[Rfam]
RNA sequence: GCGUGGGACACGCCUCCCCAACGAGGCGCGACUAUCUGAGAGGGUAGCCUUC
Numbered sequence: 001g002c003g004u005g006g007g008a009c010a011c012g013c014c015u016c017c018c019c020a021a022c023g024a025g026g027c028g029c030g031a032c033u034a035u036c037u038g039a040g041a042g043g044g045u046a047g048c049c050u051u052c
Stems, first nucleotide, its partner, number of pairs: 011028006032047006

Background
Rfam assigns this 52-nucleotide RNA from Lutibaculum baratangense to the family "serC leader". Pairs were carried over by alignment from the consensus structure. On this family, see Corbino et al., Genome Biol 2005: "Evidence for a second class of S-adenosylmethionine riboswitches and other regulatory RNA motifs in alpha-proteobacteria". By type it is a cis-regulatory leader. This family is a putative regulatory RNA structure that is found upstream of the serC-serA operon in some alpha-proteobacteria. The final stem of the structure overlaps the ribosome binding site of the serC reading frame. Lineage of the source: Bacteria > Pseudomonadota > Tepidamorphaceae > Lutibaculum > Lutibaculum baratangense.